[Rfam]
RNA sequence: CACAUGGAACGGCUUGCAAGGGUGGUCGGCUACCUCUCCGAGAAGGGAGGGAUGCCCAUGGAGGUUAAAGAUGCUUUGACGCUGAUGAUCGGUUUUGGUGCGCUAAUUAUAGCGCUACUGACGCUUGUUAUUGCUAUCAUCGCUGUAAUUAACCAAAAGAAAUAGACCGCCCCUCUACCAGGAUAACGGUCUAUUUCUGAUCUUAUACCCGGAGCCGACCGCCUUUGAAGCGGUCUACUGUGCCAGGAGUCGUGUUGACGCACGGCUC
Numbered sequence: 001c002a003c004a005u006g007g008a009a010c011g012g013c014u015u016g017c018a019a020g021g022g023u024g025g026u027c028g029g030c031u032a033c034c035u036c037u038c039c040g041a042g043a044a045g046g047g048a049g050g051g052a053u054g055c056c057c058a059u060g061g062a063g064g065u066u067a068a069a070g071a072u073g074c075u076u077u078g079a080c081g082c083u084g085a086u087g088a089u090c091g092g093u094u095u096u097g098g099u100g101c102g103c104u105a106a107u108u109a110u111a112g113c114g115c116u117a118c119u120g121a122c123g124c125u126u127g128u129u130a131u132u133g134c135u136a137u138c139a140u141c142g143c144u145g146u147a148a149u150u151a152a153c154c155a156a157a158a159g160a161a162a163u164a165g166a167c168c169g170c171c172c173c174u175c176u177a178c179c180a181g182g183a184u185a186a187c188g189g190u191c192u193a194u195u196u197c198u199g200a201u202c203u204u205a206u207a208c209c210c211g212g213a214g215c216c217g218a219c220c221g222c223c224u225u226u227g228a229a230g231c232g233g234u235c236u237a238c239u240g241u242g243c244c245a246g247g248a249g250u251c252g253u254g255u256u257g258a259c260g261c262a263c264g265g266c267u268c
Base pairs, nucleotide, nucleotide: 001242002241003240004239007236009234010217011216012215013214014213015212018174020172021171022170025167026166027165033051034050036049037048038047039046060122063119064118065117074087098113099112187199188198189197219233220232221231222230247268248267249266250265251264252263253262254261255260
This 268-nucleotide sequence from Paenibacillaceae bacterium GAS479 belongs to the Rfam family "BsrG". Rfam's curators write: bsrE, bsrG and bsrH pair through intermolecular interactions with antisense sRNAs. They form type I toxin/antitoxin system that includes an mRNA encoding for a short, toxic peptide (bsrE, bsrG and bsrH) and an antitoxin that is comprised of an antisense RNA. bsrG encodes a 39-amino-acid toxin, and the 180 nucleotide antisense sRNA called SR4 acts as the antitoxin (they overlap by 123 nucleotides). SR4 interaction with the 3'UTR of bsrG RNA promotes bsrG degradation and inhibits its translation. For this family Rfam cites "Novel small RNA-encoding genes in the intergenic regions of Bacillus subtilis" (Saito et al., Gene, 2008). It is annotated as a small RNA. The match comes from Rfam's covariance-model search (55 bits).